[Rfam]
RNA sequence: UGCCGGUUGUCCAUAGACCGGGGUUACUGAAGAGGCACACCUUCAUUGCCGGCAGUGCGGAGGGUUCUCCAAGCCAAGGCAGACAAAAGAACGAAUCUUCGCCGCAAGGCGCAGGUUCAUAGCCGCGCGUGAAGCGUCUCAGGUUCGG
Numbered sequence: 001u002g003c004c005g006g007u008u009g010u011c012c013a014u015a016g017a018c019c020g021g022g023g024u025u026a027c028u029g030a031a032g033a034g035g036c037a038c039a040c041c042u043u044c045a046u047u048g049c050c051g052g053c054a055g056u057g058c059g060g061a062g063g064g065u066u067c068u069c070c071a072a073g074c075c076a077a078g079g080c081a082g083a084c085a086a087a088a089g090a091a092c093g094a095a096u097c098u099u100c101g102c103c104g105c106a107a108g109g110c111g112c113a114g115g116u117u118c119a120u121a122g123c124c125g126c127g128c129g130u131g132a133a134g135c136g137u138c139u140c141a142g143g144u145u146c147g148g
Base pairs, nucleotide, nucleotide: 001023003021004020005019006018007017008016034050035049036048037047057128058127059126078092100111101110102109103108
RNA: speF leader
Organism: Aminobacter sp. J15